[Rfam]
RNA sequence: AAGCGGGGACGACCCCGCCUCUCCGCAUUCAAAAAUGGGGACGGCCCCG
Numbered sequence: 001a002a003g004c005g006g007g008g009a010c011g012a013c014c015c016c017g018c019c020u021c022u023c024c025g026c027a028u029u030c031a032a033a034a035a036u037g038g039g040g041a042c043g044g045c046c047c048c049g
Base pairs, nucleotide, nucleotide: 001020003018004017005016006015007014008013036049037048038047039046040045
RNA: Guanidine-II riboswitch aptamer (mini-ykkC)
Organism: Ruficoccus amylovorans